[Rfam]
RNA sequence: CAUGCCUUAAAUAAACGAACGCGUUCUUAAUAGCACAAGUUAUGAGAGUUGCUUUAUUCGAGGCUAAAAUGAGAAAAAAAAAUGCCACUGAUAAAACGAGUUACGCAUUCGCCGCAAGUUGCUGACUCACCUGACUUUGGCACAUUUCGGAGAGGCGC
Dot-bracket structure: ....................((((.((.............................................................................................................................))))))
Numbered sequence: 001c002a003u004g005c006c007u008u009a010a011a012u013a014a015a016c017g018a019a020c021g022c023g024u025u026c027u028u029a030a031u032a033g034c035a036c037a038a039g040u041u042a043u044g045a046g047a048g049u050u051g052c053u054u055u056a057u058u059c060g061a062g063g064c065u066a067a068a069a070u071g072a073g074a075a076a077a078a079a080a081a082a083u084g085c086c087a088c089u090g091a092u093a094a095a096a097c098g099a100g101u102u103a104c105g106c107a108u109u110c111g112c113c114g115c116a117a118g119u120u121g122c123u124g125a126c127u128c129a130c131c132u133g134a135c136u137u138u139g140g141c142a143c144a145u146u147u148c149g150g151a152g153a154g155g156c157g158c
Stems, first nucleotide, its partner, number of pairs: 021158004026154002
small nucleolar RNA snoR26: a 158-nucleotide RNA from Plasmodium vivax. It is annotated as a C/D-box small nucleolar RNA. Taxonomically the source falls in Plasmodium (Eukaryota, Sar, Aconoidasida, Haemosporida). The base pairs follow the family's consensus structure. Rfam links the family to the GO terms RNA processing and nucleolus.